The record is a 113-nucleotide sequence from Treponema phagedenis, which matches "TD-2 RNA" in Rfam. The literature on the family includes a 2007 paper in Nucleic Acids Res by Weinberg et al., "Identification of 22 candidate structured RNAs in bacteria using the CMfinder comparative genomics pipeline". Clan: TD (Treponema denticola) motifs. Rfam 15.1 lists 310 matches to the family in 11 species.
RNA sequence: ACUGCCACGGAUGGCAGUGGUUCCACGCAGCAGCGAGUUUUAAAGCAAAAUUAUUUACAAAGCUUUAAAACUCGCAGGUGUAAUUUUGACAAGGACGUCAAAAUUAAGCCUGC
Numbered sequence: 001a002c003u004g005c006c007a008c009g010g011a012u013g014g015c016a017g018u019g020g021u022u023c024c025a026c027g028c029a030g031c032a033g034c035g036a037g038u039u040u041u042a043a044a045g046c047a048a049a050a051u052u053a054u055u056u057a058c059a060a061a062g063c064u065u066u067a068a069a070a071c072u073c074g075c076a077g078g079u080g081u082a083a084u085u086u087u088g089a090c091a092a093g094g095a096c097g098u099c100a101a102a103a104u105u106a107a108g109c110c111u112g113c
Stems, first nucleotide, its partner, number of pairs: 001018006034074013077110003081106010
Dot-bracket structure: ((((((......))))))...............(((((((((((((...............)))))))))))))..(((.((((((((((......)))))))))).)))...